[Rfam]
RNA sequence: CUGGUCGGAAUAUCGCCAAUCCACAACAUGGCCUGUUCCGGCAAAAAAAGGAGGAUAUAUCAACCCCGCAGGACUUGCGGUGCGGCACAGUGGAGACGUGUCGUAAUGCGGCAGCCAAGCCCGGCCGCCGUGAGAGAGCGCAUUGCGGAGGCAGCGCUGUCAGAGUCAGAAAAUUAUGGCA
Numbered sequence: 001c002u003g004g005u006c007g008g009a010a011u012a013u014c015g016c017c018a019a020u021c022c023a024c025a026a027c028a029u030g031g032c033c034u035g036u037u038c039c040g041g042c043a044a045a046a047a048a049a050g051g052a053g054g055a056u057a058u059a060u061c062a063a064c065c066c067c068g069c070a071g072g073a074c075u076u077g078c079g080g081u082g083c084g085g086c087a088c089a090g091u092g093g094a095g096a097c098g099u100g101u102c103g104u105a106a107u108g109c110g111g112c113a114g115c116c117a118a119g120c121c122c123g124g125c126c127g128c129c130g131u132g133a134g135a136g137a138g139c140g141c142a143u144u145g146c147g148g149a150g151g152c153a154g155c156g157c158u159g160u161c162a163g164a165g166u167c168a169g170a171a172a173a174u175u176a177u178g179g180c181a
Base pairs, nucleotide, nucleotide: 006040007039008038009037010036011035012034015032016031017030018029066080067079068078069077072167073166074165075164076163081105082104083103084102085101086100087099088098090097091096108131109130110129111128112127114125115124116123134161135160137158138157139156140155141154144153145152146151
The record is a 181-nucleotide RNA, which matches "malK-I RNA" in Rfam. It is one of the family's seed sequences. By type it is a cis-regulatory element.